[Rfam]
This 60-nucleotide sequence from Pristionchus pacificus belongs to the Rfam family "mir-8250 microRNA precursor family".

RNA sequence: UCCUUUAUUUAUCUGAUUUGGAUUGUCAUUUGAAUCAAUCGUCAGGUAUAAUGAGGGAUA
Numbered sequence: 001u002c003c004u005u006u007a008u009u010u011a012u013c014u015g016a017u018u019u020g021g022a023u024u025g026u027c028a029u030u031u032g033a034a035u036c037a038a039u040c041g042u043c044a045g046g047u048a049u050a051a052u053g054a055g056g057g058a059u060a
Stems, first nucleotide, its partner, number of pairs: 001058009010048008021040005
Taxonomically the source falls in Pristionchus (Eukaryota, Bilateria, Chromadorea, Rhabditina). Rfam's curators put it in the seed alignment. The base pairs follow the family's consensus structure, which was predicted with RNAalifold.